Rfam assigns this 125-nucleotide sequence from Blomia tropicalis to the family "U4atac minor spliceosomal RNA". The family's consensus secondary structure is taken from published work. A search with the family's covariance model found it, with a score of 57 bits. It is annotated as a spliceosomal small nuclear RNA. Rfam links the family to the GO terms pre-mRNA 5'-splice site binding, mRNA 5'-splice site recognition and spliceosomal tri-snRNP complex assembly. On this family, see Shukla et al., Nucleic Acids Res 2002: "Domains of human U4atac snRNA required for U12-dependent splicing in vivo". About the family: U4atac is an essential component of the minor U12-type spliceosome complex which is required for removal of the rarer class of eukaryotic introns (AT-AC, U12-type).
RNA sequence: ACCGUCUUUAUCCCGGGGACAUAGUCAGACAAUGAACAAACAGUGAGUCUGCCUUUGCUGACACCGGAAUUAACUAAACCCGUACCAACCGUCCUACUUUGACGGAUGGUACAAUUUUUGUGGGC
Numbered sequence: 001a002c003c004g005u006c007u008u009u010a011u012c013c014c015g016g017g018g019a020c021a022u023a024g025u026c027a028g029a030c031a032a033u034g035a036a037c038a039a040a041c042a043g044u045g046a047g048u049c050u051g052c053c054u055u056u057g058c059u060g061a062c063a064c065c066g067g068a069a070u071u072a073a074c075u076a077a078a079c080c081c082g083u084a085c086c087a088a089c090c091g092u093c094c095u096a097c098u099u100u101g102a103c104g105g106a107u108g109g110u111a112c113a114a115u116u117u118u119u120g121u122g123g124g125c
Stems, first nucleotide, its partner, number of pairs: 005019005020057002024053001026051005036044002082112006089105005